[Rfam]
A member of the RNA family "mir-24 microRNA precursor family" from Arctia plantaginis, 69 nucleotides long. Rfam's curators write: This family represents the microRNA (miRNA) mir-24 family. miRNAs are transcribed as ~70nt precursors (modelled here) and subsequently processed by the Dicer enzyme to give a ~22nt product. In this case the mature sequence comes from the 3' arm of the precursor. It scores 50 bits against the family's covariance model. The family's consensus secondary structure was predicted with RNAalifold. Its family is annotated with miRNA-mediated post-transcriptional gene silencing and RISC complex in the Gene Ontology.
RNA sequence: ACUGCCUGUGACUGCUGUGCUGAGGUCGUGGGUUCGAUACCCACGACCUCAGCACAGCAGUCACAGGCA
Numbered sequence: 001a002c003u004g005c006c007u008g009u010g011a012c013u014g015c016u017g018u019g020c021u022g023a024g025g026u027c028g029u030g031g032g033u034u035c036g037a038u039a040c041c042c043a044c045g046a047c048c049u050c051a052g053c054a055c056a057g058c059a060g061u062c063a064c065a066g067g068c069a
Base pairs, nucleotide, nucleotide: 003069004068005067006066008064009063011061012060013059015057016056017055018054019053020052021051022050023049025047026046027045028044029043